[Rfam]
RNA: Fluoride riboswitch aptamer (crcB RNA motif)
RNA sequence: CCGCUGUACGGUGAUGGAGCUCACCGUAACCCUCACAUGCUUCUGUGGGUAAUGGCUCCUGUGAUGAG
Numbered sequence: 001c002c003g004c005u006g007u008a009c010g011g012u013g014a015u016g017g018a019g020c021u022c023a024c025c026g027u028a029a030c031c032c033u034c035a036c037a038u039g040c041u042u043c044u045g046u047g048g049g050u051a052a053u054g055g056c057u058c059c060u061g062u063g064a065u066g067a068g
Base pairs, nucleotide, nucleotide: 010025011024012023013022016059017058018057019056020055021054032049033048034047035046036045037044